[Rfam]
RNA sequence: UUCUUGGUUCCUCGCAUUGAUAACUUAUUAACCUGGUCAGAGCCGGAAGGCAGCAGCCAUAGUAGGUGAUUCAAGUGCCGAGGGUUUGCUGGGGAGUC
Numbered sequence: 001u002u003c004u005u006g007g008u009u010c011c012u013c014g015c016a017u018u019g020a021u022a023a024c025u026u027a028u029u030a031a032c033c034u035g036g037u038c039a040g041a042g043c044c045g046g047a048a049g050g051c052a053g054c055a056g057c058c059a060u061a062g063u064a065g066g067u068g069a070u071u072c073a074a075g076u077g078c079c080g081a082g083g084g085u086u087u088g089c090u091g092g093g094g095a096g097u098c
Stems, first nucleotide, its partner, number of pairs: 004092005009084006015075001017074004023067007034059004042051003
RNA: Bacterial small signal recognition particle RNA